A member of the RNA family "mir-1343 microRNA precursor family" from Suricata suricatta, 83 nucleotides long. The source organism's lineage runs through Eukaryota, Craniata, Tetrapoda, Laurasiatheria and Suricata.
RNA sequence: CUGGCAUCUGUGUUGGGAAGUGGUUCCCGGAGCGGGCCUCCACUCUGGCCCUUACUGGGGCCUGCACUGUCGCUCCGGGUCCG
Numbered sequence: 001c002u003g004g005c006a007u008c009u010g011u012g013u014u015g016g017g018a019a020g021u022g023g024u025u026c027c028c029g030g031a032g033c034g035g036g037c038c039u040c041c042a043c044u045c046u047g048g049c050c051c052u053u054a055c056u057g058g059g060g061c062c063u064g065c066a067c068u069g070u071c072g073c074u075c076c077g078g079g080u081c082c083g
Stems, first nucleotide, its partner, number of pairs: 003081003007078002010075001012073002015070001017068001020065004025060006034051005
Record summary: Gene Ontology terms of the family: RISC complex and miRNA-mediated post-transcriptional gene silencing.